Background: A member of the RNA family "Bacterial RNase P class A" from Treponema sp. Marseille-Q4132, 394 nucleotides long. NCBI's taxonomy places the organism under Bacteria, Pseudomonadati, Spirochaetota, Spirochaetia, Treponema. Gene Ontology terms of the family: dimeric ribonuclease P complex, ribonuclease P activity and tRNA processing.

RNA sequence: CAGACGGGAUAUAACCGCGCGGAUUUUUUCUGAUGAAAGAGAAAACCCGUGAGGCAAAGUCCGGGCUCCGCCGGAAAAAAUGCCGGGUAAUAACCGGGCGGAUGCGGUAACUGCAGCGAUGCAAAGUCCGCAUUCGACAGACAGUGCAGCAGAAAAUAUACCGCCCGUCUUCCAUGGCGGGUAAGGGUGAAAAGGCGGUGUAAGAGACCCCCGCGCAUCCGGUAACGGAUGCGGCAGUGCAAACCUCAUUUGGAGCAAAACCGAGCGGCAGCGGGUUUUCCGGACCGUAACUGCGGGUAGGUUGCUUGAGACGCAGGGUAAUCUGCGUUUCAGACAGAUGGUUAUGUCGGAUUACAGCCGAUGCCAGAACCCGGCUUACCGUCCCGUCUGUUUU
Numbered sequence: 001c002a003g004a005c006g007g008g009a010u011a012u013a014a015c016c017g018c019g020c021g022g023a024u025u026u027u028u029u030c031u032g033a034u035g036a037a038a039g040a041g042a043a044a045a046c047c048c049g050u051g052a053g054g055c056a057a058a059g060u061c062c063g064g065g066c067u068c069c070g071c072c073g074g075a076a077a078a079a080a081u082g083c084c085g086g087g088u089a090a091u092a093a094c095c096g097g098g099c100g101g102a103u104g105c106g107g108u109a110a111c112u113g114c115a116g117c118g119a120u121g122c123a124a125a126g127u128c129c130g131c132a133u134u135c136g137a138c139a140g141a142c143a144g145u146g147c148a149g150c151a152g153a154a155a156a157u158a159u160a161c162c163g164c165c166c167g168u169c170u171u172c173c174a175u176g177g178c179g180g181g182u183a184a185g186g187g188u189g190a191a192a193a194g195g196c197g198g199u200g201u202a203a204g205a206g207a208c209c210c211c212c213g214c215g216c217a218u219c220c221g222g223u224a225a226c227g228g229a230u231g232c233g234g235c236a237g238u239g240c241a242a243a244c245c246u247c248a249u250u251u252g253g254a255g256c257a258a259a260a261c262c263g264a265g266c267g268g269c270a271g272c273g274g275g276u277u278u279u280c281c282g283g284a285c286c287g288u289a290a291c292u293g294c295g296g297g298u299a300g301g302u303u304g305c306u307u308g309a310g311a312c313g314c315a316g317g318g319u320a321a322u323c324u325g326c327g328u329u330u331c332a333g334a335c336a337g338a339u340g341g342u343u344a345u346g347u348c349g350g351a352u353u354a355c356a357g358c359c360g361a362u363g364c365c366a367g368a369a370c371c372c373g374g375c376u377u378a379c380c381g382u383c384c385c386g387u388c389u390g391u392u393u394u
Base pairs, nucleotide, nucleotide: 001390002389003388004387005386006385007384008383009382010381012344013343014342015341016340018051019050020049021048022047024045025044026043027042028041029040030039031038057377058376059375061374062373063372064371065370066255067254068253069252074281076279078251079250080249081248082247083097084096085095086094098138099136100135101134102133103132104131105130106129107128139246140245144244145243146240147239148238161186162185163182164181165180166179167178168177169176194212195211197209198208199207213235214233215232216231217230218229219228220227221226259303260302261301262300268294269293270292271291274286275285276284277283310329311328312327313326314325315324316323317322